[Rfam]
RNA sequence: UACUACCAAACCCUAUCUCCACCUCCACGUGGUGACCGCUGGGAGCUCUUUCUUGACGAAAAGCUGCAGAAGAAGGG
Numbered sequence: 001u002a003c004u005a006c007c008a009a010a011c012c013c014u015a016u017c018u019c020c021a022c023c024u025c026c027a028c029g030u031g032g033u034g035a036c037c038g039c040u041g042g043g044a045g046c047u048c049u050u051u052c053u054u055g056a057c058g059a060a061a062a063g064c065u066g067c068a069g070a071a072g073a074a075g076g077g
Stems, first nucleotide, its partner, number of pairs: 012077003016073003020069001021033003045067002049063003053059001